A member of the RNA family "SAM riboswitch aptamer (S box leader)" from Neomicrococcus aestuarii, 110 nucleotides long. The organism belongs to Neomicrococcus, within Bacteria. From the family's description: The SAM riboswitch is found upstream of a number of genes which code for proteins involved in methionine or cysteine biosynthesis in Gram-positive bacteria. The SAM riboswitch acts at the level of transcription termination control. Pairs were carried over by alignment from the consensus structure, which is taken from published work. A search with the family's covariance model found it, with a score of 45 bits.

RNA sequence: CAACCAUCCCGAGCGGCUGAGAGACCUGGAUCGACGACGCCGCAGCAACCCUCCGCCCGAUCACUCGCGUGAACGGACAGGAACGGUGCUACCGCCAGGACCGAUGGAAG
Numbered sequence: 001c002a003a004c005c006a007u008c009c010c011g012a013g014c015g016g017c018u019g020a021g022a023g024a025c026c027u028g029g030a031u032c033g034a035c036g037a038c039g040c041c042g043c044a045g046c047a048a049c050c051c052u053c054c055g056c057c058c059g060a061u062c063a064c065u066c067g068c069g070u071g072a073a074c075g076g077a078c079a080g081g082a083a084c085g086g087u088g089c090u091a092c093c094g095c096c097a098g099g100a101c102c103g104a105u106g107g108a109a110g
Base pairs, nucleotide, nucleotide: 001110004107005106006105007104008103013043014042015041016040017039021032022031026098027097028096029095044090045089046088047087049086050085052082053081054080094102